[Rfam]
RNA sequence: UAGCUUAAUCCUAAGUCAAACUUCUCUAUCUUUGACCAAGUUUUUAGAAAAAAUAUUUUAAAAUCUAAAAGUUCAAAUAAAUGCAUUAUCAAGAGAAUUUAAUGAACCUAAUUUGAUAUCAUAGAUGAUGAUGCAUUUUUCUAUAAAUUUGGUCAAAGUUAGAAAAGUUUGACUUAGGAAAAAGGUAG
Numbered sequence: 001u002a003g004c005u006u007a008a009u010c011c012u013a014a015g016u017c018a019a020a021c022u023u024c025u026c027u028a029u030c031u032u033u034g035a036c037c038a039a040g041u042u043u044u045u046a047g048a049a050a051a052a053a054u055a056u057u058u059u060a061a062a063a064u065c066u067a068a069a070a071g072u073u074c075a076a077a078u079a080a081a082u083g084c085a086u087u088a089u090c091a092a093g094a095g096a097a098u099u100u101a102a103u104g105a106a107c108c109u110a111a112u113u114u115g116a117u118a119u120c121a122u123a124g125a126u127g128a129u130g131a132u133g134c135a136u137u138u139u140u141c142u143a144u145a146a147a148u149u150u151g152g153u154c155a156a157a158g159u160u161a162g163a164a165a166a167g168u169u170u171g172a173c174u175u176a177g178g179a180a181a182a183a184g185g186u187a188g
Base pairs, nucleotide, nucleotide: 005183006182009179011177012176013175014174015173016172017171018170019169020168021167022166023165025163026162031157032156033155034154035153045143046142047141048140049139050138051137052136054133055132056131060129063126064125065124066123067122073116074115075114076113077112078111
This 188-nucleotide RNA from Miscanthus lutarioriparius belongs to the Rfam family "MIR1435 microRNA precursor family". The family's consensus secondary structure was predicted with RNAalifold. NCBI's taxonomy places the organism under Eukaryota, Petrosaviidae, commelinids, Panicoideae, Miscanthus. A search with the family's covariance model found it, with a score of 98 bits.